[Rfam]
RNA sequence: AAGUGUUACAAGCUCUUAGAAUCUGUCUAGCAUGCUUUCUAGCUUUUGCCAGAAAGCCCAU
Numbered sequence: 001a002a003g004u005g006u007u008a009c010a011a012g013c014u015c016u017u018a019g020a021a022u023c024u025g026u027c028u029a030g031c032a033u034g035c036u037u038u039c040u041a042g043c044u045u046u047u048g049c050c051a052g053a054a055a056g057c058c059c060a061u
Base pairs, nucleotide, nucleotide: 034057035056036055037054038053039052040051042049043048